[Rfam]
RNA sequence: GUCGUGGUAGCCAAGCCUGGCCCAAGGCGCAGGGUUGCUAACUCUGUGGCGUACAGCCUCCGGGGUUCGAAUCCCCGCCACGACG
Numbered sequence: 001g002u003c004g005u006g007g008u009a010g011c012c013a014a015g016c017c018u019g020g021c022c023c024a025a026g027g028c029g030c031a032g033g034g035u036u037g038c039u040a041a042c043u044c045u046g047u048g049g050c051g052u053a054c055a056g057c058c059u060c061c062g063g064g065g066u067u068c069g070a071a072u073c074c075c076c077g078c079c080a081c082g083a084c085g
Stems, first nucleotide, its partner, number of pairs: 001084007010028003030046005061077005